RNA sequence: GCGAUGAGCUAAUUGCAUAAGACAAGGUUGACACACCUUUAUGGUAAUGCACUAUGUGGAGUGCAGUCCCUUGCCGCAAUACGUAAAGAAAGACGUCCAAAUCGGGCGUC
Dot-bracket structure: ............((((......(((((..(((..((.......))..((.(((......))).))))))))))..))))............(((((((.....)))))))